Shown here is a 565-nucleotide part of an RNA from Promethearchaeum syntrophicum, a member of the family "Archaeal large subunit ribosomal RNA".
Pairs were carried over by alignment from the consensus structure, which is taken from published work.
[Rfam]
RNA sequence: CGCCUACGCUGUAUAGUGGAUGUCUCGGCUUGGAAUCUGAUGAAGGGCGUGACAAGCUGCGAUAAGCUCCGGGUAGGUGCAAGUAACCGUCGAUCCGGAGAUCCCCGAAUGUGACAUCAUAACUCAAUUAAUAUUGAGUUGCUCCCAUAAUCUUUGAUGAGGGAGGAGGAACGUGCUGAAGCGAAGCAUCAUAAUAAGCGCUGGAAAAGAAAGCAAAUGCGAUUCCGUUAGUAACAGCGAGCGAAAGCGGAAAAGGUCAAACCGAAUCCCCACGCGAGAAGUGUGGGGAGAUGUGGAGUGUGGACUCGUGUCAAACCUAAACGAUAAAGAUGAACUACCCUGGAAUGUCUGACCAUAGAGGGUGAUAGUCCCGUAAUCGUAAAUCGUAAGGUUUAUGGCGAGUAUCCCGAGUAACGCGGGCUGGUUGCCUCGUGUGAAUACACCUGAUACCAACAGGUAAACCUAAAUAUAACCCAAGACCGAUAGCGUAUUAGUACCGUGAGGGAAAGAUGAAAAGCACCCAGGAAUGGUUGUGAAAAGUGCCUGAAACUAUACAGUAAAAAGU
Numbered sequence: 001c002g003c004c005u006a007c008g009c010u011g012u013a014u015a016g017u018g019g020a021u022g023u024c025u026c027g028g029c030u031u032g033g034a035a036u037c038u039g040a041u042g043a044a045g046g047g048c049g050u051g052a053c054a055a056g057c058u059g060c061g062a063u064a065a066g067c068u069c070c071g072g073g074u075a076g077g078u079g080c081a082a083g084u085a086a087c088c089g090u091c092g093a094u095c096c097g098g099a100g101a102u103c104c105c106c107g108a109a110u111g112u113g114a115c116a117u118c119a120u121a122a123c124u125c126a127a128u129u130a131a132u133a134u135u136g137a138g139u140u141g142c143u144c145c146c147a148u149a150a151u152c153u154u155u156g157a158u159g160a161g162g163g164a165g166g167a168g169g170a171a172c173g174u175g176c177u178g179a180a181g182c183g184a185a186g187c188a189u190c191a192u193a194a195u196a197a198g199c200g201c202u203g204g205a206a207a208a209g210a211a212a213g214c215a216a217a218u219g220c221g222a223u224u225c226c227g228u229u230a231g232u233a234a235c236a237g238c239g240a241g242c243g244a245a246a247g248c249g250g251a252a253a254a255g256g257u258c259a260a261a262c263c264g265a266a267u268c269c270c271c272a273c274g275c276g277a278g279a280a281g282u283g284u285g286g287g288g289a290g291a292u293g294u295g296g297a298g299u300g301u302g303g304a305c306u307c308g309u310g311u312c313a314a315a316c317c318u319a320a321a322c323g324a325u326a327a328a329g330a331u332g333a334a335c336u337a338c339c340c341u342g343g344a345a346u347g348u349c350u351g352a353c354c355a356u357a358g359a360g361g362g363u364g365a366u367a368g369u370c371c372c373g374u375a376a377u378c379g380u381a382a383a384u385c386g387u388a389a390g391g392u393u394u395a396u397g398g399c400g401a402g403u404a405u406c407c408c409g410a411g412u413a414a415c416g417c418g419g420g421c422u423g424g425u426u427g428c429c430u431c432g433u434g435u436g437a438a439u440a441c442a443c444c445u446g447a448u449a450c451c452a453a454c455a456g457g458u459a460a461a462c463c464u465a466a467a468u469a470u471a472a473c474c475c476a477a478g479a480c481c482g483a484u485a486g487c488g489u490a491u492u493a494g495u496a497c498c499g500u501g502a503g504g505g506a507a508a509g510a511u512g513a514a515a516a517g518c519a520c521c522c523a524g525g526a527a528u529g530g531u532u533g534u535g536a537a538a539a540g541u542g543c544c545u546g547a548a549a550c551u552a553u554a555c556a557g558u559a560a561a562a563a564g565u
Stems, first nucleotide, its partner, number of pairs: 008558009022544001023510002027481002029478005045106003048061003067100006076088003111120003142165005172203001173201005183190002213220002224251005235241001254464004262296003272284004305402004313394004329378003335351001337350001340347001354358001360372003414435007442458005497504002
Dot-bracket structure: .......(((((((((.....(((..(((((((...........((((((........))).....((((((...(((.......)))......))))))...)))....(((....))).....................(((((..............)))))......((((((.....((....))......))))).).........((....))...(((((......(.....).....)))))..((((....(((.......((((.....)))).........)))........((((....((((............(((...(.(..(......)..))..(...).(((.......)))...)))............))))....))))...........(((((((........)))))))......(((((.......)))))..)))).........))))).))...............((....))....)).................................).....))))))))).......
Lineage of the source: Archaea > Promethearchaeati > Promethearchaeota > Promethearchaeia > Promethearchaeum.